[Rfam]
RNA sequence: CAAAUCAUGCAAAUCCAAAAUAUUGCAGGAGUUAUGUAGGCCU
Numbered sequence: 001c002a003a004a005u006c007a008u009g010c011a012a013a014u015c016c017a018a019a020a021u022a023u024u025g026c027a028g029g030a031g032u033u034a035u036g037u038a039g040g041c042c043u
Stems, first nucleotide, its partner, number of pairs: 005030002008027005
The family of this 43-nucleotide sequence from Shigella flexneri is "ES036 (CssrF) sRNA". Pairs were carried over by alignment from the consensus structure, which was predicted with RNAfold. NCBI's taxonomy places the organism under Bacteria, Pseudomonadati, Enterobacteriaceae, Shigella flexneri, Shigella flexneri 2a. A search with the family's covariance model found it, with a score of 46 bits. Rfam describes the family as follows. Differentially expressed under several chemical stress conditions. Also identified in Shigella as CssrF.